[Rfam]
RNA sequence: AAACCCUUUUCUAUUUCCUUUUUAAUCUUUUUAUACUAAGAUGGGAGAUAAGCUGUAUAUCUGGUCGACUGACAGAUUUCUGGACGCGGGUUCAACUCCCGCCGUCUCCACCACUAGUACAUGAGGUAAUCGUGUUUUAAUGAGGGGGACGUAUUGGUUUCGACAGGGGUAAAUAGGAAGAUUGGCAGCCGGUAGGCGAUGACCGUAAAUCAAGCAAAUCUUAUAAAUGCAAACGAUGAAAGUUACGCAUUAGCCGCCUAAUGAAAGGCCGCUAGGAGUGUGAUUCACUUGGCAACAGAACGAAUCAGGGCAGCUUAGGCUGCCUUUUUUA
Numbered sequence: 001a002a003a004c005c006c007u008u009u010u011c012u013a014u015u016u017c018c019u020u021u022u023u024a025a026u027c028u029u030u031u032u033a034u035a036c037u038a039a040g041a042u043g044g045g046a047g048a049u050a051a052g053c054u055g056u057a058u059a060u061c062u063g064g065u066c067g068a069c070u071g072a073c074a075g076a077u078u079u080c081u082g083g084a085c086g087c088g089g090g091u092u093c094a095a096c097u098c099c100c101g102c103c104g105u106c107u108c109c110a111c112c113a114c115u116a117g118u119a120c121a122u123g124a125g126g127u128a129a130u131c132g133u134g135u136u137u138u139a140a141u142g143a144g145g146g147g148g149a150c151g152u153a154u155u156g157g158u159u160u161c162g163a164c165a166g167g168g169g170u171a172a173a174u175a176g177g178a179a180g181a182u183u184g185g186c187a188g189c190c191g192g193u194a195g196g197c198g199a200u201g202a203c204c205g206u207a208a209a210u211c212a213a214g215c216a217a218a219u220c221u222u223a224u225a226a227a228u229g230c231a232a233a234c235g236a237u238g239a240a241a242g243u244u245a246c247g248c249a250u251u252a253g254c255c256g257c258c259u260a261a262u263g264a265a266a267g268g269c270c271g272c273u274a275g276g277a278g279u280g281u282g283a284u285u286c287a288c289u290u291g292g293c294a295a296c297a298g299a300a301c302g303a304a305u306c307a308g309g310g311c312a313g314c315u316u317a318g319g320c321u322g323c324c325u326u327u328u329u330u331a
Stems, first nucleotide, its partner, number of pairs: 052189004061185002064182002069177002076170007086102005103151007190205004275290002278288002281307006308325007
Betaproteobacteria transfer-messenger RNA: a 331-nucleotide sequence from Pelistega ratti. Pairs were carried over by alignment from the consensus structure, which is taken from published work. NCBI's taxonomy places the organism under Bacteria, Pseudomonadati, Burkholderiales, Alcaligenaceae, Pelistega. On this family, see Williams and Bartel, RNA 1996: "Phylogenetic analysis of tmRNA secondary structure". The match comes from Rfam's covariance-model search (142 bits). Its Rfam clan is "tRNA clan". About the family: Bacterial tmRNA, also known as 10Sa RNA or SsrA, is named for its dual tRNA and mRNA-like properties. By type it is a non-coding RNA gene.